[Rfam]
RNA sequence: UUAACUCAAAUUUGUAGGCAGUUGGAACAGCGCCCCUAGCGGCAGAUGUAGGAAAACGUUUCAACUCCACACAAUUUUCAGUUA
Numbered sequence: 001u002u003a004a005c006u007c008a009a010a011u012u013u014g015u016a017g018g019c020a021g022u023u024g025g026a027a028c029a030g031c032g033c034c035c036c037u038a039g040c041g042g043c044a045g046a047u048g049u050a051g052g053a054a055a056a057c058g059u060u061u062c063a064a065c066u067c068c069a070c071a072c073a074a075u076u077u078u079c080a081g082u083u084a
Stems, first nucleotide, its partner, number of pairs: 008078003012074004018068001020066009034052002039047001